[Rfam]
RNA sequence: UUUGGUCCUCGGUGGUGGCUUACGGAUUUAAACAAGAAUGCCGUUGGCUUCGAUCGAAGAUCCAU
Numbered sequence: 001u002u003u004g005g006u007c008c009u010c011g012g013u014g015g016u017g018g019c020u021u022a023c024g025g026a027u028u029u030a031a032a033c034a035a036g037a038a039u040g041c042c043g044u045u046g047g048c049u050u051c052g053a054u055c056g057a058a059g060a061u062c063c064a065u
Stems, first nucleotide, its partner, number of pairs: 002064001004062004009057005017049004022044004026039003
RNA: Actino-pnp RNA